[Rfam]
Source information:
The family of this 49-nucleotide RNA sequence from Phalaenopsis aphrodite is "Plastid-rpoB 5UTR RNA". Rfam 15.1 lists 102 matches to the family in 69 species. Rfam classes the family as a cis-regulatory element. The source organism's lineage runs through Eukaryota, Asparagales, Epidendroideae, Aeridinae and Phalaenopsis aphrodite. The family's consensus secondary structure was predicted with LocARNA. Plastid rpoB is a non-coding RNA (ncRNA) recognised in plastids. It was found in the 5 prime untranslated region (5UTR) of a chloroplast-encoded RNA polymerase subunit (rpoB) in plastids, suggesting a posible cis-regulatory function. The sequence is in the family's curated seed alignment.
RNA sequence: CUAUGCUGUUCCUGAUUUUUCUGUUUUUAUCUCAUUCAUAGAGAGCAGA
Number, nucleotide and partner (000 for none) at each position: 001c000002u000003a000004u000005g000006c048007u047008g046009u045010u044011c043012c000013u000014g000015a000016u000017u000018u000019u000020u000021c000022u000023g000024u000025u000026u000027u000028u000029a000030u000031c000032u000033c000034a000035u000036u000037c000038a000039u000040a000041g000042a000043g011044a010045g009046c008047a007048g006049a000